[Rfam]
RNA sequence: UCAGCAUGAACUGGUGGUGGGCCCGCUGACAGCGGCCUCGACCCCUCAUGCGUUUGAGAUGCGUGAUUGAGACGACAAGCCGCCCGAACAUUCGAGGCGGCUUUUUU
Numbered sequence: 001u002c003a004g005c006a007u008g009a010a011c012u013g014g015u016g017g018u019g020g021g022c023c024c025g026c027u028g029a030c031a032g033c034g035g036c037c038u039c040g041a042c043c044c045c046u047c048a049u050g051c052g053u054u055u056g057a058g059a060u061g062c063g064u065g066a067u068u069g070a071g072a073c074g075a076c077a078a079g080c081c082g083c084c085c086g087a088a089c090a091u092u093c094g095a096g097g098c099g100g101c102u103u104u105u106u107u
Stems, first nucleotide, its partner, number of pairs: 013043003017039001019038004024034003049071001051069002077103008085094003
A member of the RNA family "RcsR1 sRNA" from Xaviernesmea oryzae, 107 nucleotides long. For this family Rfam cites "The stress-related, rhizobial small RNA RcsR1 destabilizes the autoinducer synthase encoding mRNA sinI in Sinorhizobium meliloti" (Baumgardt et al., RNA Biol, 2015). By type it is a small RNA. The source organism's lineage runs through Bacteria, Pseudomonadati, Pseudomonadota, Rhizobiaceae and Xaviernesmea. Rfam describes the family as follows. RcsR1 (rhizobial cold and salinity stress riboregulator 1) trans-acting sRNA, formerly known as SmelC587, is a stress-related riboregulator, conserved in Sinorhizobium, Rhizobium and Agrobacterium.